[Rfam]
RNA sequence: UGAAGUGUGGGUGAUGAGGCUAUUUGUAGACUAAAGUUUCUGAUCUGGGUUCUUCUUCCCAUAUUUUGAUUACAAACCCUUGGUUGUCUGAGCACAUUA
Numbered sequence: 001u002g003a004a005g006u007g008u009g010g011g012u013g014a015u016g017a018g019g020c021u022a023u024u025u026g027u028a029g030a031c032u033a034a035a036g037u038u039u040c041u042g043a044u045c046u047g048g049g050u051u052c053u054u055c056u057u058c059c060c061a062u063a064u065u066u067u068g069a070u071u072a073c074a075a076a077c078c079c080u081u082g083g084u085u086g087u088c089u090g091a092g093c094a095c096a097u098u099a
Base pairs, nucleotide, nucleotide: 001099002098003097005095006094007093008092039069040068044063046061047060048059049058
RNA: Small nucleolar RNA Z157/R69/R10
Organism: Castanea mollissima